Description:
ALIL pseudoknot: a 117-nucleotide RNA sequence from Alcaligenes faecalis. NCBI's taxonomy places the organism under Bacteria, Pseudomonadati, Burkholderiales, Alcaligenaceae, Alcaligenes.

[Rfam]
RNA sequence: CGCUUUUUUCGCCCAGGCGGCGCUCGAUCGCGAACUGAAGAAGUAAACGCCUAUCUCGAUCAGCACCGGGAUCUGUACGGGGUCGAGCCGAUCUGCAAGGUAUUGCAGGUCGCUCCG
Numbered sequence: 001c002g003c004u005u006u007u008u009u010c011g012c013c014c015a016g017g018c019g020g021c022g023c024u025c026g027a028u029c030g031c032g033a034a035c036u037g038a039a040g041a042a043g044u045a046a047a048c049g050c051c052u053a054u055c056u057c058g059a060u061c062a063g064c065a066c067c068g069g070g071a072u073c074u075g076u077a078c079g080g081g082g083u084c085g086a087g088c089c090g091a092u093c094u095g096c097a098a099g100g101u102a103u104u105g106c107a108g109g110u111c112g113c114u115c116c117g
Stems, first nucleotide, its partner, number of pairs: 017031004078117005089112002092109007
On this family, see Mazauric et al., J Biol Chem 2008: "Apical loop-internal loop RNA pseudoknots: a new type of stimulator of -1 translational frameshifting in bacteria".